[Rfam]
RNA sequence: UAGUCAUCAAAGCUAGAUGUAAUGAACAGACUAUCCGGAGCGGAGGAACCACUCUUUUUGGGGCGAAUCUUGAGAAGGCUAAAGGUGAAGGAUAUGCAAGAUUGAGUUUAACUCUUACUGCUUUAACCUUCAGGCUUGAUACUUUAACCUUCUUCAGAAGGACACCUCUCAGUCCUAGCCCGUCAGCUAACUCCGUCGGCAUUGAGAGGAGACUGA
Numbered sequence: 001u002a003g004u005c006a007u008c009a010a011a012g013c014u015a016g017a018u019g020u021a022a023u024g025a026a027c028a029g030a031c032u033a034u035c036c037g038g039a040g041c042g043g044a045g046g047a048a049c050c051a052c053u054c055u056u057u058u059u060g061g062g063g064c065g066a067a068u069c070u071u072g073a074g075a076a077g078g079c080u081a082a083a084g085g086u087g088a089a090g091g092a093u094a095u096g097c098a099a100g101a102u103u104g105a106g107u108u109u110a111a112c113u114c115u116u117a118c119u120g121c122u123u124u125a126a127c128c129u130u131c132a133g134g135c136u137u138g139a140u141a142c143u144u145u146a147a148c149c150u151u152c153u154u155c156a157g158a159a160g161g162a163c164a165c166c167u168c169u170c171a172g173u174c175c176u177a178g179c180c181c182g183u184c185a186g187c188u189a190a191c192u193c194c195g196u197c198g199g200c201a202u203u204g205a206g207a208g209g210a211g212a213c214u215g216a
Stems, first nucleotide, its partner, number of pairs: 004039002040196006050060002061181003069157002160175004
A member of the RNA family "c-di-AMP riboswitch aptamer (ydaO/yuaA leader)" from Thermocoleostomius sinensis, 216 nucleotides long. This family represents a conserved RNA structure found upstream of the ydaO and yuaA genes in Bacillus subtilis and related genes in other bacteria. Gene Ontology terms of the family: cyclic-di-AMP binding and regulation of gene expression.